[Rfam]
RNA sequence: GAGAGCGGAUAUGGCCUGGUGGUCGUCCUCGUCUUCAAAACGAGCGGGCGCGGUGGCGAACCGCGUCGGUGGGUUCGACUCCCACGCGCUCUC
Number, nucleotide and partner (000 for none) at each position: 001g093002a092003g091004a090005g089006c088007g087008g085009a000010u000011a026012u025013g024014g023015c022016c021017u000018g000019g000020u000021g016022g015023u014024c013025g012026u011027c000028c044029u043030c042031g041032u040033c000034u000035u000036c000037a000038a000039a000040a032041c031042g030043a029044g028045c000046g000047g067048g066049c065050g064051c063052g000053g000054u000055g000056g000057c000058g000059a000060a000061c000062c000063g051064c050065g049066u048067c047068g000069g000070u084071g083072g082073g081074u000075u000076c000077g000078a000079c000080u000081c073082c072083c071084a070085c008086g000087c007088g006089c005090u004091c003092u002093c001
Rfam assigns this 93-nucleotide RNA sequence from Oscillochloris trichoides to the family "Selenocysteine transfer RNA". Lineage of the source: Bacteria > Chloroflexota > Oscillochloridaceae > Oscillochloris > Oscillochloris trichoides.